Rfam assigns this 130-nucleotide RNA from Carlito syrichta to the family "Small nucleolar RNA SNORA31". Pairs were carried over by alignment from the consensus structure, which was predicted with RNAalifold.
RNA sequence: AUGCAUCUAUUUGGCAGAUCUGGAGUAGUUUCUGCUGCUAAGGUUUCCACUACAGAUGCAAGAAAAAAAUGUCCUCGCACUUUCUGUCUGUCUGAUUGUGGCAGCCAAAAUUGAAUAGAGAAAUAUAGGG
Numbered sequence: 001a002u003g004c005a006u007c008u009a010u011u012u013g014g015c016a017g018a019u020c021u022g023g024a025g026u027a028g029u030u031u032c033u034g035c036u037g038c039u040a041a042g043g044u045u046u047c048c049a050c051u052a053c054a055g056a057u058g059c060a061a062g063a064a065a066a067a068a069a070u071g072u073c074c075u076c077g078c079a080c081u082u083u084c085u086g087u088c089u090g091u092c093u094g095a096u097u098g099u100g101g102c103a104g105c106c107a108a109a110a111u112u113g114a115a116u117a118g119a120g121a122a123a124u125a126u127a128g129g130g
Stems, first nucleotide, its partner, number of pairs: 002060007012049002016046005025038005072122001074120003080113001083110001085108001088104005

On this family, see Huttenhofer et al., EMBO J 2001: "RNomics: an experimental approach that identifies 201 candidates for novel, small, non-messenger RNAs in mouse".
ACA31 (SNORA31) belongs to the H/ACA class of snoRNAs which are thought to guide the sites of modification of uridines to pseudouridines.
By type it is an H/ACA-box small nucleolar RNA.